A member of the RNA family "Fluoride riboswitch aptamer (crcB RNA motif)", 74 nucleotides long. Gene Ontology terms of the family: response to fluoride and positive regulation of gene expression. The family's consensus secondary structure is taken from published work.
[Rfam]
RNA sequence: CAUUUGCAAGGAGAUGGAAUCCUCCAGCGCUCUCUGGGCCGAACUUUCUAAUGAAUGAUGAUUCCUGCUUGGAG
Number, nucleotide and partner (000 for none) at each position: 001c000002a000003u000004u000005u000006g000007c000008a000009a000010g025011g024012a023013g022014a000015u000016g065017g064018a063019a062020u061021c060022c013023u012024c011025c010026a000027g000028c000029g000030c000031u000032c000033u000034c000035u000036g000037g000038g000039c000040c000041g000042a000043a000044c000045u000046u055047u054048c053049u000050a000051a000052u000053g048054a047055a046056u000057g000058a000059u000060g021061a020062u019063u018064c017065c016066u000067g000068c000069u000070u000071g000072g000073a000074g000
Overview
The match comes from Rfam's covariance-model search (36 bits).